[Rfam]
RNA: SAH (S-adenosyl-L-homocysteine) riboswitch aptamer
RNA sequence: CCGACCGAGGGGCGCUGCGAUGGCCGGGAACUCCCGCCACCAGGCUCGGUACGAACAACGGCGCCCGUGACUG
Numbered sequence: 001c002c003g004a005c006c007g008a009g010g011g012g013c014g015c016u017g018c019g020a021u022g023g024c025c026g027g028g029a030a031c032u033c034c035c036g037c038c039a040c041c042a043g044g045c046u047c048g049g050u051a052c053g054a055a056c057a058a059c060g061g062c063g064c065c066c067g068u069g070a071c072u073g
Base pairs, nucleotide, nucleotide: 004050005049006048007047008046021039022038023037024036026034